[Rfam]
RNA sequence: CGCAGCCCCGUCAAAUUCGGUCCCUGCCUUCUCCGUGGUGGGGACCGGCCAAACGGCUGCCACAGCGACUUCCAUGGUCCCUGAGCCCCACGUCCCCUUCCCAUGGGAUGCUGGGGGGUAAAUUCACACCACGGACACCU
Numbered sequence: 001c002g003c004a005g006c007c008c009c010g011u012c013a014a015a016u017u018c019g020g021u022c023c024c025u026g027c028c029u030u031c032u033c034c035g036u037g038g039u040g041g042g043g044a045c046c047g048g049c050c051a052a053a054c055g056g057c058u059g060c061c062a063c064a065g066c067g068a069c070u071u072c073c074a075u076g077g078u079c080c081c082u083g084a085g086c087c088c089c090a091c092g093u094c095c096c097c098u099u100c101c102c103a104u105g106g107g108a109u110g111c112u113g114g115g116g117g118g119u120a121a122a123u124u125c126a127c128a129c130c131a132c133g134g135a136c137a138c139c140u
Base pairs, nucleotide, nucleotide: 002060003059004058005057018047019046020045021044022043023042024041025040026039027038028037075131076130077129078128086117087116088115089114
Rfam assigns this 140-nucleotide RNA from Thinocorus orbignyianus to the family "Small nucleolar RNA SNORA5". It scores 71 bits against the family's covariance model. The base pairs follow the family's consensus structure, which was predicted with RNAfold. The organism belongs to Thinocorus, within Eukaryota. About the family: ACA5 is a member of the H/ACA class of snoRNA that guide the sites of modification of uridines to pseudouridines. Rfam links the family to the GO terms nucleolus and RNA processing.